[Rfam]
Shown here is a 73-nucleotide RNA sequence from Ameiurus melas, a member of the family "mir-216 microRNA precursor family". NCBI's taxonomy places the organism under Eukaryota, Eumetazoa, Otomorpha, Otophysi, Ameiurus. The family is grouped with related families in Rfam's "mir-216 clan". Its family is annotated with RISC complex and miRNA-mediated post-transcriptional gene silencing in the Gene Ontology.

RNA sequence: UGCUGGCAUAAUCUCAGCUGGCAACUGUGAGCGUGAGACAGCCCUCGCAGGGGCUGCUGGGAUUGUGCCAAGC
Numbered sequence: 001u002g003c004u005g006g007c008a009u010a011a012u013c014u015c016a017g018c019u020g021g022c023a024a025c026u027g028u029g030a031g032c033g034u035g036a037g038a039c040a041g042c043c044c045u046c047g048c049a050g051g052g053g054c055u056g057c058u059g060g061g062a063u064u065g066u067g068c069c070a071a072g073c
Stems, first nucleotide, its partner, number of pairs: 004070004009065009020055003026049006